[Rfam]
RNA sequence: UUUGCAGUCCCAAAGUGCUCACAGUGCAGGUAGUGCACACUGAUCUACUGCAGUCUGGGCACUUCGGGUAUUGCUGG
Numbered sequence: 001u002u003u004g005c006a007g008u009c010c011c012a013a014a015g016u017g018c019u020c021a022c023a024g025u026g027c028a029g030g031u032a033g034u035g036c037a038c039a040c041u042g043a044u045c046u047a048c049u050g051c052a053g054u055c056u057g058g059g060c061a062c063u064u065c066g067g068g069u070a071u072u073g074c075u076g077g
Stems, first nucleotide, its partner, number of pairs: 004074004010068002013064009023054001025052003029049005
Rfam assigns this 77-nucleotide RNA sequence from Anabas testudineus to the family "mir-17 microRNA precursor family". The family's consensus secondary structure was predicted with RNAalifold. Lineage of the source: Eukaryota > Actinopteri > Clupeocephala > Acanthomorphata > Anabas. Rfam describes the family as follows. This family represents the microRNA (miRNA) precursor mir-17, family, which includes mir-20, mir-91, and mir-103. miRNAs are transcribed as ~70nt precursors (modelled here) and subsequently processed by the Dicer enzyme to give a ~22nt product. A reference for the family is Ambros (2001), "microRNAs: tiny regulators with great potential", Cell. Gene Ontology terms of the family: RISC complex and miRNA-mediated post-transcriptional gene silencing. It scores 66 bits against the family's covariance model.